[Rfam]
This 332-nucleotide RNA sequence from Clostridium tarantellae belongs to the Rfam family "transfer-messenger RNA". Taxonomically the source falls in Clostridium (Bacteria, Bacillati, Clostridia, Eubacteriales). Bacterial tmRNA, also known as 10Sa RNA or SsrA, is named for its dual tRNA and mRNA-like properties. Its role is to liberate the mRNA from a stalled ribosome. To accomplish this part of the tmRNA is used as a reading frame that ends in a translation stop signal.
RNA sequence: UUUGGCUUCGACGGGGGUAAGAUGGGUUUGAUAAGCGGGUCGAGGUAAGCAUGUAACCUCGUUAAUAAAGUAUGCAUUAAAGAUAAACGCAGAAGACAAUUUUGCAUUAGCAGCUUAAUUUAGCUGUUCAUCAGCCCAGGUUGCCUACGGCUUGGAUAACUGGUGUCAUUGAAGUGGGAAACGAAGUUUAGCAAAGCUUUGAGCUAAAGGGGUAUUUAUGAAGCUAGUGAAUUAUGUGCCUGUCUAUAGGCGGCAUAAGGAGCGAAUGUUAAUAUAUAGACUACACUCGUAGAAAGUCAGGCUGGUCUGCUUUCGGACAGGGGUUCGAUUCG
Numbered sequence: 001u002u003u004g005g006c007u008u009c010g011a012c013g014g015g016g017g018u019a020a021g022a023u024g025g026g027u028u029u030g031a032u033a034a035g036c037g038g039g040u041c042g043a044g045g046u047a048a049g050c051a052u053g054u055a056a057c058c059u060c061g062u063u064a065a066u067a068a069a070g071u072a073u074g075c076a077u078u079a080a081a082g083a084u085a086a087a088c089g090c091a092g093a094a095g096a097c098a099a100u101u102u103u104g105c106a107u108u109a110g111c112a113g114c115u116u117a118a119u120u121u122a123g124c125u126g127u128u129c130a131u132c133a134g135c136c137c138a139g140g141u142u143g144c145c146u147a148c149g150g151c152u153u154g155g156a157u158a159a160c161u162g163g164u165g166u167c168a169u170u171g172a173a174g175u176g177g178g179a180a181a182c183g184a185a186g187u188u189u190a191g192c193a194a195a196g197c198u199u200u201g202a203g204c205u206a207a208a209g210g211g212g213u214a215u216u217u218a219u220g221a222a223g224c225u226a227g228u229g230a231a232u233u234a235u236g237u238g239c240c241u242g243u244c245u246a247u248a249g250g251c252g253g254c255a256u257a258a259g260g261a262g263c264g265a266a267u268g269u270u271a272a273u274a275u276a277u278a279g280a281c282u283a284c285a286c287u288c289g290u291a292g293a294a295a296g297u298c299a300g301g302c303u304g305g306u307c308u309g310c311u312u313u314c315g316g317a318c319a320g321g322g323g324u325u326c327g328a329u330u331c332g
Base pairs, nucleotide, nucleotide: 012315013314014313015312016311017310018309019308021306023305025303026302027301028300029299030298031297032296036289037288038287039286040285041061042060043059044058045057049075050074051073052072053071054070109128110127111126112125113124114123129165130164131163132162133161134160136155137154138153139152140151141150144178145177146176147175148174187208188207189206190205191204192203195225196224197223198222199221200220227263228262232258233257234256235255236254238251239250240249242281243280244279245278246275247274248273323331